RNA sequence: GGCAGUAGCAGCGAAGAGGGGUGGAAAUCCCCUCCGCCGGAAAGGGCAAGGGUUCCUCGGCAACGGUCGUCGGCCGAGGGUUAGCCGGCCCUAACCCGGGCCGUAACACGGACCCGGGGAAGGGGAAACGGGUUAAUAUUCCCGUGCCGCGGGGGUAGACGCGGCAACGCAAGCCCGGCCUCCGACGCCUCCGGAUAGGCGGACCGGGGGCACCCGAAUGGGUGCGACCCGGCUAACCGGUGAAGGCCCUGGAGAACCGUAAUGGUGAGAAGGGGCCGAAGCCGGGAAUGGGAUCCCGUAUGGGGUCUUCCGCUGACUCCGGGGGCCCAUGAAAAGGGGGCCGGGAACGAUCCCCCGCGCCCGUACCGAGAACCGACACAGGUGCCCCUGGGUGAGUAGCCCCAGGCGUCU
Numbered sequence: 001g002g003c004a005g006u007a008g009c010a011g012c013g014a015a016g017a018g019g020g021g022u023g024g025a026a027a028u029c030c031c032c033u034c035c036g037c038c039g040g041a042a043a044g045g046g047c048a049a050g051g052g053u054u055c056c057u058c059g060g061c062a063a064c065g066g067u068c069g070u071c072g073g074c075c076g077a078g079g080g081u082u083a084g085c086c087g088g089c090c091c092u093a094a095c096c097c098g099g100g101c102c103g104u105a106a107c108a109c110g111g112a113c114c115c116g117g118g119g120a121a122g123g124g125g126a127a128a129c130g131g132g133u134u135a136a137u138a139u140u141c142c143c144g145u146g147c148c149g150c151g152g153g154g155g156u157a158g159a160c161g162c163g164g165c166a167a168c169g170c171a172a173g174c175c176c177g178g179c180c181u182c183c184g185a186c187g188c189c190u191c192c193g194g195a196u197a198g199g200c201g202g203a204c205c206g207g208g209g210g211c212a213c214c215c216g217a218a219u220g221g222g223u224g225c226g227a228c229c230c231g232g233c234u235a236a237c238c239g240g241u242g243a244a245g246g247c248c249c250u251g252g253a254g255a256a257c258c259g260u261a262a263u264g265g266u267g268a269g270a271a272g273g274g275g276c277c278g279a280a281g282c283c284g285g286g287a288a289u290g291g292g293a294u295c296c297c298g299u300a301u302g303g304g305g306u307c308u309u310c311c312g313c314u315g316a317c318u319c320c321g322g323g324g325g326c327c328c329a330u331g332a333a334a335a336g337g338g339g340g341c342c343g344g345g346a347a348c349g350a351u352c353c354c355c356c357g358c359g360c361c362c363g364u365a366c367c368g369a370g371a372a373c374c375g376a377c378a379c380a381g382g383u384g385c386c387c388c389u390g391g392g393u394g395a396g397u398a399g400c401c402c403c404a405g406g407c408g409u410c411u
Base pairs, nucleotide, nucleotide: 016034017033018032019031020030021029035408036407037406038405044387045386046385047384050367051366055079056078057077058076059075060074064072065071086363087362088361090124091123095118096117097116098115099114100113101111102110103109128145129144130143131142132141148359149358150357151356152355153354154353155352181338182337183336187326188325189324190323191322192321193320194319195318198314199313200312201311202310204232205231206230207229208228237285238284239283240282246276247275248274249273250272256266257265258264297302373382374381390402391401392400
Archaeal large subunit ribosomal RNA: a 411-nucleotide part of an RNA from Staphylothermus hellenicus.
Gene Ontology terms of the family: ribosome and structural constituent of ribosome.
The family's consensus secondary structure is taken from published work.
The source organism's lineage runs through Archaea, Thermoproteati, Thermoprotei, Desulfurococcales and Staphylothermus hellenicus.